RNA sequence: AUGCUCUGGUUUCCCAACAACGUGCUAAAUCUUUCACUUAAAAGAUUACCGUGGAGAGGAACAACUUAAUGAGCCUCAUUUUUUGGAAUCCCACUUCGGUGGGAU
Numbered sequence: 001a002u003g004c005u006c007u008g009g010u011u012u013c014c015c016a017a018c019a020a021c022g023u024g025c026u027a028a029a030u031c032u033u034u035c036a037c038u039u040a041a042a043a044g045a046u047u048a049c050c051g052u053g054g055a056g057a058g059g060a061a062c063a064a065c066u067u068a069a070u071g072a073g074c075c076u077c078a079u080u081u082u083u084u085g086g087a088a089u090c091c092c093a094c095u096u097c098g099g100u101g102g103g104a105u
Stems, first nucleotide, its partner, number of pairs: 003074004009062005015056001018053002026048002029046006087105001089104006

A member of the RNA family "U5 spliceosomal RNA" from Araneus ventricosus, 105 nucleotides long. Rfam describes the family as follows. U5 RNA is a component of both types of known spliceosome. The precise function of this molecule is unknown, though it is known that the 5' loop is required for splice site selection and p220 binding, and that both the 3' stem-loop and the Sm site are important for Sm protein binding and cap methylation. Taxonomically the source falls in Araneus (Eukaryota, Protostomia, Panarthropoda, Orbiculariae). A reference for the family is Zwieb (1997), "The uRNA database", Nucleic Acids Res.